[Rfam]
RNA: TPP riboswitch aptamer (THI element)
RNA sequence: ACCUCAUAUUCGGGGAGCUUGCAGCCGCCGUAUGGGCGGCCGGGCAGGCUGAGAGGAGGCGCCGCAUACGCCUCGACCCGCCGAACCUGCUGUGGGUAAUGCCAACGAAGGGAGUUUUAUGAUCGAAGAU
Numbered sequence: 001a002c003c004u005c006a007u008a009u010u011c012g013g014g015g016a017g018c019u020u021g022c023a024g025c026c027g028c029c030g031u032a033u034g035g036g037c038g039g040c041c042g043g044g045c046a047g048g049c050u051g052a053g054a055g056g057a058g059g060c061g062c063c064g065c066a067u068a069c070g071c072c073u074c075g076a077c078c079c080g081c082c083g084a085a086c087c088u089g090c091u092g093u094g095g096g097u098a099a100u101g102c103c104a105a106c107g108a109a110g111g112g113a114g115u116u117u118u119a120u121g122a123u124c125g126a127a128g129a130u
Stems, first nucleotide, its partner, number of pairs: 006118001008116001010114001011080004017049005056074005086111003093104003